Rfam assigns this 87-nucleotide RNA to the family "GA-cis RNA".
RNA sequence: AAGAGGAGGUGCUAUGUGCCCUGCGGGCACAUAUUGGAAUGCACCGACGAACUGCCACCGACCGCAAGGGAGGGGGCGAUACAAGAA
Numbered sequence: 001a002a003g004a005g006g007a008g009g010u011g012c013u014a015u016g017u018g019c020c021c022u023g024c025g026g027g028c029a030c031a032u033a034u035u036g037g038a039a040u041g042c043a044c045c046g047a048c049g050a051a052c053u054g055c056c057a058c059c060g061a062c063c064g065c066a067a068g069g070g071a072g073g074g075g076g077c078g079a080u081a082c083a084a085g086a087a
Stems, first nucleotide, its partner, number of pairs: 008045005015031006054077003058073002062069002

The sequence is in the family's curated seed alignment. Rfam classes the family as a small RNA. The family's consensus secondary structure is taken from published work.